[Rfam]
RNA sequence: GGCAGUGUGGCCGAGUGGUCUAAGGCGUAACGUUUAGGCCGUUAUCUCUCCGGAGGCGUGGGUUCGAACCCCACCACUGUCA
Number, nucleotide and partner (000 for none) at each position: 001g081002g080003c079004a078005g077006u076007g075008u000009g000010g026011c025012c024013g000014a000015g000016u000017g000018g000019u000020c000021u000022a000023a000024g012025g011026c010027g000028u044029a043030a042031c041032g040033u000034u000035u000036a000037g000038g000039c000040c032041g031042u030043u029044a028045u000046c000047u000048c000049u000050c000051c000052g000053g000054a000055g000056g000057c000058g074059u073060g072061g071062g070063u000064u000065c000066g000067a000068a000069c000070c062071c061072c060073a059074c058075c007076a006077c005078u004079g003080u002081c001082a000